Overview: Rfam assigns this 195-nucleotide sequence from Mytilus edulis to the family "Small nucleolar RNA SNORA53". About the family: The snoRNA ACA53 belongs to the H/ACA family of pseudouridylation guide snoRNAs. Its family is annotated with RNA processing and nucleolus in the Gene Ontology. The source organism's lineage runs through Eukaryota, Protostomia, Bivalvia, Mytilinae and Mytilus. Rfam 15.1 lists 1,090 matches to the family in 800 species.
RNA sequence: AACACACUCCUUAGAUCCACCUUUGGGACAAAGUCAUGGAUGCUUGAAGUGACAAUGUCCAACAACUUCAUUGUUGUACCAUCGAAGGUGCUUGAGUCAUUGGUGUGUUAUAUCAGUAUACCUCAGACUGCAGACUUGGGACUGUUGCAGAUCUAAAGAUCACUAUGGCAACAGUUGGCUGUUUUCUGGGACACG
Dot-bracket structure: .(((((((.(((((...(((((((((((((..((((.............))))..))))).(((((......))))).....)))))))).))))).....))))))).............(((((...(.((.(.....((((((((...(.(..........).))))))))).).)).)...))))).....